RNA: HNH endonuclease-associated RNA and ORF (HEARO) RNA
Organism: Oxynema acuminatum
RNA sequence: GUCAGGAACCCGCCGCUAAAUGCUUUGCAUUAUAGCGGGGGCAAGUAAGAAGCCCAAACGUGACCAGCCUAAGUCCCACGAGGACUACGUUACCUCUAAGUGUUAAAGUUCCUACCCUGGGAUGCGUUGCCAGUUCCAGGCUCUAGAACUCCAGCAUUAAACAGGCUUAAUCGGGUUAAACCAGUGUGUUGGAGAAAGUACCGAGGCGUAACUUAGGCGAGGCAAACGUUAC
Numbered sequence: 001g002u003c004a005g006g007a008a009c010c011c012g013c014c015g016c017u018a019a020a021u022g023c024u025u026u027g028c029a030u031u032a033u034a035g036c037g038g039g040g041g042c043a044a045g046u047a048a049g050a051a052g053c054c055c056a057a058a059c060g061u062g063a064c065c066a067g068c069c070u071a072a073g074u075c076c077c078a079c080g081a082g083g084a085c086u087a088c089g090u091u092a093c094c095u096c097u098a099a100g101u102g103u104u105a106a107a108g109u110u111c112c113u114a115c116c117c118u119g120g121g122a123u124g125c126g127u128u129g130c131c132a133g134u135u136c137c138a139g140g141c142u143c144u145a146g147a148a149c150u151c152c153a154g155c156a157u158u159a160a161a162c163a164g165g166c167u168u169a170a171u172c173g174g175g176u177u178a179a180a181c182c183a184g185u186g187u188g189u190u191g192g193a194g195a196a197a198g199u200a201c202c203g204a205g206g207c208g209u210a211a212c213u214u215a216g217g218c219g220a221g222g223c224a225a226a227c228g229u230u231a232c
Stems, first nucleotide, its partner, number of pairs: 001064004006059001010041002013038006045053001067218005072086005089212005095206003110147002116140008127225005149194009161185002164182002167179004